Rfam assigns this 299-nucleotide RNA sequence from Nitrosomonas sp. Nm51 to the family "Bacterial RNase P class A".
[Rfam]
RNA sequence: GAAGCUGGCCAGGCAGUCGCUGCCUGCUGCUUGAAAACAGCAGGGAGAGGAAAGUCCGGACUCCAUAGAGCGGGAUGUCGGCUAACAGCCGAACGCCGUAAGGCGAGGAACAGGGCCACAGAGACGAGCGUAUUAAGUUACGGUGAAACGCGGCAACCUCCAUCCGGAGCAAAACCAAAUAGGCAGGCGGUGAGGCUGCUCGCGGAGCCUGCGGGUAGGUUGCUUGAAUGUGCGGGUAACUGUACAUCUAGAUGAAUGACUGUCCACGACAGAAUCCGGCUUACCGGCCAGCUUCUUUA
Numbered sequence: 001g002a003a004g005c006u007g008g009c010c011a012g013g014c015a016g017u018c019g020c021u022g023c024c025u026g027c028u029g030c031u032u033g034a035a036a037a038c039a040g041c042a043g044g045g046a047g048a049g050g051a052a053a054g055u056c057c058g059g060a061c062u063c064c065a066u067a068g069a070g071c072g073g074g075a076u077g078u079c080g081g082c083u084a085a086c087a088g089c090c091g092a093a094c095g096c097c098g099u100a101a102g103g104c105g106a107g108g109a110a111c112a113g114g115g116c117c118a119c120a121g122a123g124a125c126g127a128g129c130g131u132a133u134u135a136a137g138u139u140a141c142g143g144u145g146a147a148a149c150g151c152g153g154c155a156a157c158c159u160c161c162a163u164c165c166g167g168a169g170c171a172a173a174a175c176c177a178a179a180u181a182g183g184c185a186g187g188c189g190g191u192g193a194g195g196c197u198g199c200u201c202g203c204g205g206a207g208c209c210u211g212c213g214g215g216u217a218g219g220u221u222g223c224u225u226g227a228a229u230g231u232g233c234g235g236g237u238a239a240c241u242g243u244a245c246a247u248c249u250a251g252a253u254g255a256a257u258g259a260c261u262g263u264c265c266a267c268g269a270c271a272g273a274a275u276c277c278g279g280c281u282u283a284c285c286g287g288c289c290a291g292c293u294u295c296u297u298u299a
Stems, first nucleotide, its partner, number of pairs: 001295010012264007020047002023044006052282003056279005061169004068201004073165005078092005094105004108160002113158002115154003129142004173221004183212006195203002228247008
The organism belongs to Nitrosomonas, within Bacteria. Rfam classes the family as a ribozyme.